The record is a 59-nucleotide sequence from Leucobacter viscericola, which matches "msiK RNA" in Rfam. It scores 57 bits against the family's covariance model.
[Rfam]
RNA sequence: GGGCAUCAACUCUUCACAAUGGAUCGUCCGACACGUACCUGUCGGUGAGAGGAAUACCA
Numbered sequence: 001g002g003g004c005a006u007c008a009a010c011u012c013u014u015c016a017c018a019a020u021g022g023a024u025c026g027u028c029c030g031a032c033a034c035g036u037a038c039c040u041g042u043c044g045g046u047g048a049g050a051g052g053a054a055u056a057c058c059a
Stems, first nucleotide, its partner, number of pairs: 010051004015047002028045006
The base pairs follow the family's consensus structure, which is taken from published work. Taxonomically the source falls in Leucobacter (Bacteria, Actinomycetes, Micrococcales, Microbacteriaceae). It is annotated as a cis-regulatory element.